[Rfam]
RNA: Phenylalanine leader peptide
Organism: [Pantoea] beijingensis
RNA sequence: CAAGCAUGAAUGCUGCUAUUUUCCGUUUCUUUUUUUACUUUAGCGCCUGAAUCGGGGGCUUUGCGCAAUAAGAAGAGAAACGAAAAAUCGCGCUGAAAGCCUCCCUCGUGGAGGCUUUUUUAUU
Numbered sequence: 001c002a003a004g005c006a007u008g009a010a011u012g013c014u015g016c017u018a019u020u021u022u023c024c025g026u027u028u029c030u031u032u033u034u035u036u037a038c039u040u041u042a043g044c045g046c047c048u049g050a051a052u053c054g055g056g057g058g059c060u061u062u063g064c065g066c067a068a069u070a071a072g073a074a075g076a077g078a079a080a081c082g083a084a085a086a087a088u089c090g091c092g093c094u095g096a097a098a099g100c101c102u103c104c105c106u107c108g109u110g111g112a113g114g115c116u117u118u119u120u121u122a123u124u
Base pairs, nucleotide, nucleotide: 015091016090018088020086021085022084024082025081026080027079028078029077030076031075032074033073035071036070037069041055056066058064059063096118097117098116099115100114101113102112103111104110